The record is a 136-nucleotide sequence from Brachypteracias leptosomus, which matches "Small nucleolar RNA SNORA15" in Rfam.
On this family, see Huttenhofer et al., EMBO J 2001: "RNomics: an experimental approach that identifies 201 candidates for novel, small, non-messenger RNAs in mouse".
Rfam 15.1 lists 974 matches to the family in 624 species.
Gene Ontology terms of the family: RNA processing and nucleolus.
From the family's description: ACA15 is a member of the H/ACA class of snoRNA that guide the sites of modification of uridines to pseudouridines.

RNA sequence: GCAUGGCCGAAUUCUGCACUAGCUUUCCUCAGUAGCUAGUGCAGUCAGACACUAUGCCAGAAUAAAUCCCUUUUUCAUGCUGAUGGGUGUGCUUUCCAUAUGAGAAUGGGCAUGCCUCUGGAAGUGGGAUACAGAA
Numbered sequence: 001g002c003a004u005g006g007c008c009g010a011a012u013u014c015u016g017c018a019c020u021a022g023c024u025u026u027c028c029u030c031a032g033u034a035g036c037u038a039g040u041g042c043a044g045u046c047a048g049a050c051a052c053u054a055u056g057c058c059a060g061a062a063u064a065a066a067u068c069c070c071u072u073u074u075u076c077a078u079g080c081u082g083a084u085g086g087g088u089g090u091g092c093u094u095u096c097c098a099u100a101u102g103a104g105a106a107u108g109g110g111c112a113u114g115c116c117u118c119u120g121g122a123a124g125u126g127g128g129a130u131a132c133a134g135a136a
Stems, first nucleotide, its partner, number of pairs: 001057006014044006067129004072124004083119001085117010